Description: The record is a 135-nucleotide sequence from Trichoplusia ni, which matches "U11 spliceosomal RNA" in Rfam. Its Rfam clan is "U1 clan".
RNA sequence: AAAACGUGUGUCUGCCGCUUGGAUGGCAUACGUACCGGCGACGGCGCGUGGGGUAUGAUUAUCAAGACAUAUUUAACACAUAAGCUUUGUAACGGAGAGGCAUUUGACCACCUACAAAUACCGGCGUCUCCUCUC
Numbered sequence: 001a002a003a004a005c006g007u008g009u010g011u012c013u014g015c016c017g018c019u020u021g022g023a024u025g026g027c028a029u030a031c032g033u034a035c036c037g038g039c040g041a042c043g044g045c046g047c048g049u050g051g052g053g054u055a056u057g058a059u060u061a062u063c064a065a066g067a068c069a070u071a072u073u074u075a076a077c078a079c080a081u082a083a084g085c086u087u088u089g090u091a092a093c094g095g096a097g098a099g100g101c102a103u104u105u106g107a108c109c110a111c112c113u114a115c116a117a118a119u120a121c122c123g124g125c126g127u128c129u130c131c132u133c134u135c
Stems, first nucleotide, its partner, number of pairs: 008079004013028005029050005035044003051074007097133004102129001105126002108124002
NCBI's taxonomy places the organism under Eukaryota, Eumetazoa, Amphiesmenoptera, Obtectomera, Trichoplusia.